Rfam assigns this 148-nucleotide sequence from Moschus moschiferus to the family "Small nucleolar RNA SNORA79". ACA65 (SNORA79) is a member of the H/ACA class of snoRNAs that guide the sites of modification of uridines to pseudouridines. The family's consensus secondary structure was predicted with RNAalifold. Rfam links the family to the GO terms RNA processing and nucleolus. Rfam 15.1 lists 944 matches to the family in 375 species. NCBI's taxonomy places the organism under Eukaryota, Chordata, Amniota, Theria, Moschus. The family's RNA type in Rfam is H/ACA-box small nucleolar RNA. The match comes from Rfam's covariance-model search (70 bits).
RNA sequence: UGAUGGCUGUUUCUCUAGUGGCUGGAGCCUUAGGUAGUGGGAUUUUAGUCCAUCAUAUGUCUUAAGCUGGCUUGUCUUCUUUCAGGACACCACAGGGAUGGCUUGGCUGUUUGUUAAUGUGUUCUGAUUUUUGCAGAAUCACACAAUU
Numbered sequence: 001u002g003a004u005g006g007c008u009g010u011u012u013c014u015c016u017a018g019u020g021g022c023u024g025g026a027g028c029c030u031u032a033g034g035u036a037g038u039g040g041g042a043u044u045u046u047a048g049u050c051c052a053u054c055a056u057a058u059g060u061c062u063u064a065a066g067c068u069g070g071c072u073u074g075u076c077u078u079c080u081u082u083c084a085g086g087a088c089a090c091c092a093c094a095g096g097g098a099u100g101g102c103u104u105g106g107c108u109g110u111u112u113g114u115u116a117a118u119g120u121g122u123u124c125u126g127a128u129u130u131u132u133g134c135a136g137a138a139u140c141a142c143a144c145a146a147u148u
Stems, first nucleotide, its partner, number of pairs: 001055006008048001014042003017038001019036002022033001069140002072137002082127009096112005